Rfam assigns this 96-nucleotide RNA sequence from Lentibacillus kapialis to the family "SAM riboswitch aptamer (S box leader)".
The family's consensus secondary structure is taken from published work.
Lineage of the source: Bacteria > Bacilli > Caryophanales > Bacillaceae > Lentibacillus.
It scores 79 bits against the family's covariance model.
RNA sequence: UUCUUAUCCAGAGAGGUGGAGGGACUGGCCCGUUGAAACCUCAGCAACAGAAGUUAGUACUGUGCUAAUUCCAGAGGCGUAUGCUGAAGAUAAGAA
Dot-bracket structure: ((((((((....(((((...(((.[[[[)))......)))))((((.(((.......)..))))))...(]]]]((.(....)))..)))))))))